Annotation:
This 90-nucleotide RNA sequence from Hibiscus trionum belongs to the Rfam family "mir-166 microRNA precursor family". The family has 31 seed sequences and 2,599 matches in Rfam 15.1. Pairs were carried over by alignment from the consensus structure, which was predicted with PFOLD. This family represents the plant microRNA (miRNA) precursor mir-166. It scores 70 bits against the family's covariance model. Taxonomically the source falls in Hibiscus (Eukaryota, Tracheophyta, Gunneridae, Pentapetalae).
RNA sequence: UUUGAGAGGAAUGUUGUCUGGCUCGAUGCCAGGGCUUUGAGCUUUCAACUUUGAAGUGAUGGUAUCGGACCAGGCUUCAUUCCCCUCAAC
Numbered sequence: 001u002u003u004g005a006g007a008g009g010a011a012u013g014u015u016g017u018c019u020g021g022c023u024c025g026a027u028g029c030c031a032g033g034g035c036u037u038u039g040a041g042c043u044u045u046c047a048a049c050u051u052u053g054a055a056g057u058g059a060u061g062g063u064a065u066c067g068g069a070c071c072a073g074g075c076u077u078c079a080u081u082c083c084c085c086u087c088a089a090c
Stems, first nucleotide, its partner, number of pairs: 002089005008083006016075006024067003